A member of the RNA family "Bacillaceae-1 RNA" from Siminovitchia fortis, 66 nucleotides long. The family has 95 seed sequences and 5,721 matches in Rfam 15.1. Taxonomically the source falls in Siminovitchia (Bacteria, Bacillati, Bacillota, Bacillaceae).

[Rfam]
RNA sequence: CGGCGACGAAGGCAGGCUGAGGACGCGACAUCCUGUAGCUUCGCCUGCACUAGGACGUCCUGUCCG
Numbered sequence: 001c002g003g004c005g006a007c008g009a010a011g012g013c014a015g016g017c018u019g020a021g022g023a024c025g026c027g028a029c030a031u032c033c034u035g036u037a038g039c040u041u042c043g044c045c046u047g048c049a050c051u052a053g054g055a056c057g058u059c060c061u062g063u064c065c066g
Stems, first nucleotide, its partner, number of pairs: 012048006025039002028036002053065004
A search with the family's covariance model found it, with a score of 39 bits.